[Rfam]
RNA: TPP riboswitch aptamer (THI element)
Organism: Gallionellaceae bacterium
RNA sequence: ACGCUUGCGUGGGGGUCUUCGCUAGACUUGAGUGGGCGGAGUGAGAUACACCCUUUGAACCUGUACGGAUAAUGCCGUCGUAGGGAAGCGUCAGUUGCUACAAU
Numbered sequence: 001a002c003g004c005u006u007g008c009g010u011g012g013g014g015g016u017c018u019u020c021g022c023u024a025g026a027c028u029u030g031a032g033u034g035g036g037c038g039g040a041g042u043g044a045g046a047u048a049c050a051c052c053c054u055u056u057g058a059a060c061c062u063g064u065a066c067g068g069a070u071a072a073u074g075c076c077g078u079c080g081u082a083g084g085g086a087a088g089c090g091u092c093a094g095u096u097g098c099u100a101c102a103a104u
Base pairs, nucleotide, nucleotide: 007091008090009089010088011054012053013052014051016048017041018040019039020038021037022036023035060084061083062082063081065078066077067076068075